Rfam assigns this 81-nucleotide RNA from Streptosporangium album to the family "ZMP/ZTP riboswitch aptamer (pfl RNA motif)". Rfam 15.1 lists 3,295 matches to the family in 2,545 species. Rfam links the family to the GO terms one-carbon metabolic process and regulation of purine nucleotide biosynthetic process.
RNA sequence: CGUCUAAAGCGCGACUGGCGCAUUGGUGGGAGAGACCACCGGGGAGCGGAAUGGCGAAGGCCGUGCGCCUGGGUUUUCGCG
Numbered sequence: 001c002g003u004c005u006a007a008a009g010c011g012c013g014a015c016u017g018g019c020g021c022a023u024u025g026g027u028g029g030g031a032g033a034g035a036c037c038a039c040c041g042g043g044g045a046g047c048g049g050a051a052u053g054g055c056g057a058a059g060g061c062c063g064u065g066c067g068c069c070u071g072g073g074u075u076u077u078c079g080c081g
Stems, first nucleotide, its partner, number of pairs: 003050002010048003015043002017069005026039004058076005